[Rfam]
RNA sequence: CACUGACAUCAGUGAUUCGUUUUGCGAACCCUGACCCACUGCCAGAUAGGCAUUCAUUCCCAGCUCUUUCAUCUGCUGUUCGCCGAUGACGCGAGUCGUGAUGUUGCUGCUAAAAGCAUCGGCAAGCUGGCGAGCCUGCGAGGCAAGAUAGGCUGCGUUACAGAUAUUUGGCGGCAUAUUGCCAAGAUCUUUCGC
Numbered sequence: 001c002a003c004u005g006a007c008a009u010c011a012g013u014g015a016u017u018c019g020u021u022u023u024g025c026g027a028a029c030c031c032u033g034a035c036c037c038a039c040u041g042c043c044a045g046a047u048a049g050g051c052a053u054u055c056a057u058u059c060c061c062a063g064c065u066c067u068u069u070c071a072u073c074u075g076c077u078g079u080u081c082g083c084c085g086a087u088g089a090c091g092c093g094a095g096u097c098g099u100g101a102u103g104u105u106g107c108u109g110c111u112a113a114a115a116g117c118a119u120c121g122g123c124a125a126g127c128u129g130g131c132g133a134g135c136c137u138g139c140g141a142g143g144c145a146a147g148a149u150a151g152g153c154u155g156c157g158u159u160a161c162a163g164a165u166a167u168u169u170g171g172c173g174g175c176a177u178a179u180u181g182c183c184a185a186g187a188u189c190u191u192u193c194g195c
Stems, first nucleotide, its partner, number of pairs: 005189002012032001014030001016028005033043001035041001050059001062077003078135008087126001091123002095119002099112002102109002136163003140159002143156003167186006